[Rfam]
The family of this 54-nucleotide sequence from Anguilla anguilla is "UnaL2 LINE 3' element". The base pairs follow the family's consensus structure, which is taken from published work. Rfam's curators write: The eel long interspersed element (LINE) UnaL2 and its partner short interspersed element (SINE) share a conserved 3' tail containing a stem-loop that is critical for their retrotransposition. Presumably, the first step of retrotransposition is the recognition of their 3' tails by UnaL2-encoded reverse transcriptase.
RNA sequence: UUACACUAGUUGUGUAAGUCGCUCUGGAUAAGAGCGUCUGCUAAGUGCCUGUAA
Numbered sequence: 001u002u003a004c005a006c007u008a009g010u011u012g013u014g015u016a017a018g019u020c021g022c023u024c025u026g027g028a029u030a031a032g033a034g035c036g037u038c039u040g041c042u043a044a045g046u047g048c049c050u051g052u053a054a
Stems, first nucleotide, its partner, number of pairs: 013043001014041003020036006